[Rfam]
RNA sequence: UCUUGGCAGACGCCAGGGUCUGUGCCUGCCUUUGGAUGCUCAUCCUAUUGGGUCAGGCCGAAGCAGCCUUGG
Numbered sequence: 001u002c003u004u005g006g007c008a009g010a011c012g013c014c015a016g017g018g019u020c021u022g023u024g025c026c027u028g029c030c031u032u033u034g035g036a037u038g039c040u041c042a043u044c045c046u047a048u049u050g051g052g053u054c055a056g057g058c059c060g061a062a063g064c065a066g067c068c069u070u071g072g
Stems, first nucleotide, its partner, number of pairs: 006023006024067002027065003031061001034058001037055002
A member of the RNA family "Hepatitis C virus stem-loop SL2531 and SL2549AU" from Orthohepacivirus hominis, 72 nucleotides long. For this family Rfam cites "The Coding Region of the HCV Genome Contains a Network of Regulatory RNA Structures" (Pirakitikulr et al., Mol Cell, 2016). It is one of the family's seed sequences. Pairs were carried over by alignment from the consensus structure, which was predicted with RNAfold.